[Rfam]
RNA sequence: UUACGUGCUCCGGGGUCGGUGAAAGUCCGAACCGGCGGUGACAGUCCGCGACCCGCGAUCCUCGCAUACCGAGGUGACCGGUUGAGCCGGUGAAAUUCCGGCACCGACAGUUAAAGUCUGGAUGGGAGAAGCACGUAC
Numbered sequence: 001u002u003a004c005g006u007g008c009u010c011c012g013g014g015g016u017c018g019g020u021g022a023a024a025g026u027c028c029g030a031a032c033c034g035g036c037g038g039u040g041a042c043a044g045u046c047c048g049c050g051a052c053c054c055g056c057g058a059u060c061c062u063c064g065c066a067u068a069c070c071g072a073g074g075u076g077a078c079c080g081g082u083u084g085a086g087c088c089g090g091u092g093a094a095a096u097u098c099c100g101g102c103a104c105c106g107a108c109a110g111u112u113a114a115a116g117u118c119u120g121g122a123u124g125g126g127a128g129a130a131g132c133a134c135g136u137a138c
Stems, first nucleotide, its partner, number of pairs: 003136007010128001017029003031117002033106002035049004044104002053081002086102005108120003
Dot-bracket structure: ..((((((((......(((.......))).[[((((((.....[[))))...((.........................))....(((((.......)))))]])).(((.....]]))).......).)))))))..
This 138-nucleotide RNA sequence from Zhihengliuella flava belongs to the Rfam family "FMN riboswitch aptamer (RFN element)". NCBI's taxonomy places the organism under Bacteria, Actinomycetes, Micrococcales, Micrococcaceae, Zhihengliuella. Pairs were carried over by alignment from the consensus structure, which is taken from published work.